RNA sequence: CCAUUGGACAAUGAUGAUAUGGUCGCCUACAUAGUAAAUGGGUUAGAUGAAGAUUACAAUUCAGUUGUUUCUGCUCUUGUUACUAGGGUAGAACCAAUUACUGUUUCUGAGUUGUAUGCCCAGCUUUUAAACUUUGAAA
Numbered sequence: 001c002c003a004u005u006g007g008a009c010a011a012u013g014a015u016g017a018u019a020u021g022g023u024c025g026c027c028u029a030c031a032u033a034g035u036a037a038a039u040g041g042g043u044u045a046g047a048u049g050a051a052g053a054u055u056a057c058a059a060u061u062c063a064g065u066u067g068u069u070u071c072u073g074c075u076c077u078u079g080u081u082a083c084u085a086g087g088g089u090a091g092a093a094c095c096a097a098u099u100a101c102u103g104u105u106u107c108u109g110a111g112u113u114g115u116a117u118g119c120c121c122a123g124c125u126u127u128u129a130a131a132c133u134u135u136g137a138a139a
Base pairs, nucleotide, nucleotide: 004138005137007135008134088108090106091105092104
RNA: Small nucleolar RNA Z247